mir-191 microRNA precursor family: an 87-nucleotide sequence from Psilopogon haemacephalus. It scores 59 bits against the family's covariance model. A reference for the family is Kim et al. (2004), "Identification of many microRNAs that copurify with polyribosomes in mammalian neurons", Proc Natl Acad Sci U S A. The source organism's lineage runs through Eukaryota, Eumetazoa, Sauria, Archosauria and Psilopogon.
[Rfam]
RNA sequence: GGCGCCGGCGCGGGCAACGGAAUCCCAAAAGCAGCUGUCCCCACCGUGUCCAGCUGCCCUGGGGUUUCGUUACCUGCACUUCGCCCC
Numbered sequence: 001g002g003c004g005c006c007g008g009c010g011c012g013g014g015c016a017a018c019g020g021a022a023u024c025c026c027a028a029a030a031g032c033a034g035c036u037g038u039c040c041c042c043a044c045c046g047u048g049u050c051c052a053g054c055u056g057c058c059c060u061g062g063g064g065u066u067u068c069g070u071u072a073c074c075u076g077c078a079c080u081u082c083g084c085c086c087c
Stems, first nucleotide, its partner, number of pairs: 010077004017070009028060001031057007